A member of the RNA family "Small nucleolar RNA SNORA79" from Anabarilius grahami, 142 nucleotides long. Rfam 15.1 lists 944 matches to the family in 375 species. The family's RNA type in Rfam is H/ACA-box small nucleolar RNA. About the family: ACA65 (SNORA79) is a member of the H/ACA class of snoRNAs that guide the sites of modification of uridines to pseudouridines. NCBI's taxonomy places the organism under Eukaryota, Gnathostomata, Euteleostomi, Cypriniformes, Anabarilius.
Nucleotides: 142
Base pairs, nucleotide, nucleotide: 001057002056003055004054005053006052007051014044015043016042017041018040020036021035022034023033069134070133071132072131073130081121082120083119084118086116087115088114
Number, partner (000 for none) and nucleotide at each position: 001057u002056g003055a004054u005053g006052a007051u008000u009000g010000u011000u012000c013000c014044u015043c016042c017041u018040g019000c020036u021035g022034c023033u024000c025000u026000g027000a028000g029000c030000u031000c032000a033023g034022g035021c036020a037000g038000c039000u040018c041017a042016g043015g044014a045000u046000u047000u048000u049000g050000c051007a052006u053005c054004a055003u056002c057001a058000c059000a060000g061000a062000g063000a064000a065000a066000g067000c068000g069134a070133g071132u072131c073130c074000a075000c076000u077000u078000c079000a080000c081121c082120c083119a084118g085000c086116g087115u088114g089000u090000g091000c092000c093000g094000a095000c096000c097000u098000a099000g100000c101000g102000g103000u104000c105000u106000c107000u108000c109000g110000u111000g112000g113000c114088c115087a116086c117000a118084c119083u120082g121081g122000a123000c124000a125000u126000u127000g128000c129000a130073g131072g132071a133070c134069u135000c136000u137000a138000c139000a140000g141000u142000u